[Rfam]
RNA sequence: AAAACAUUCAAGAAGGUCAUAGCAGAAGUAGUCACAGCAUGGCCAGUCAAAUUCCAAUGAAUUGUGAAUUUUGCA
Numbered sequence: 001a002a003a004a005c006a007u008u009c010a011a012g013a014a015g016g017u018c019a020u021a022g023c024a025g026a027a028g029u030a031g032u033c034a035c036a037g038c039a040u041g042g043c044c045a046g047u048c049a050a051a052u053u054c055c056a057a058u059g060a061a062u063u064g065u066g067a068a069u070u071u072u073g074c075a
Base pairs, nucleotide, nucleotide: 015044016043017042018041022074023073024072025071026070027069028040029039048064049063051062052061053060054059
RNA: Mammalian CPEB3 ribozyme
Organism: Alligator mississippiensis